[Rfam]
RNA sequence: UGAUGAUGGUGUGAGAAAUCAUAAAGCAUGGACUUGAACCUCUCCCACUAUUUAAUAUAUUUUCACCAUCCAUCUGUCUGAAGAUCAAGAUUUCAUUUCUCAAUUU
Numbered sequence: 001u002g003a004u005g006a007u008g009g010u011g012u013g014a015g016a017a018a019u020c021a022u023a024a025a026g027c028a029u030g031g032a033c034u035u036g037a038a039c040c041u042c043u044c045c046c047a048c049u050a051u052u053u054a055a056u057a058u059a060u061u062u063u064c065a066c067c068a069u070c071c072a073u074c075u076g077u078c079u080g081a082a083g084a085u086c087a088a089g090a091u092u093u094c095a096u097u098u099c100u101c102a103a104u105u106u
Base pairs, nucleotide, nucleotide: 003104004103005101006100057073058072

Description
Plant small nucleolar RNA R71: a 106-nucleotide sequence from Capsicum baccatum. NCBI's taxonomy places the organism under Eukaryota, Streptophytina, Euphyllophyta, Solanaceae, Capsicum. The literature on the family includes a 2003 paper in Trends Plant Sci by Brown et al., "Plant snoRNAs: functional evolution and new modes of gene expression". Its family is annotated with RNA processing and nucleolus in the Gene Ontology. A search with the family's covariance model found it, with a score of 42 bits.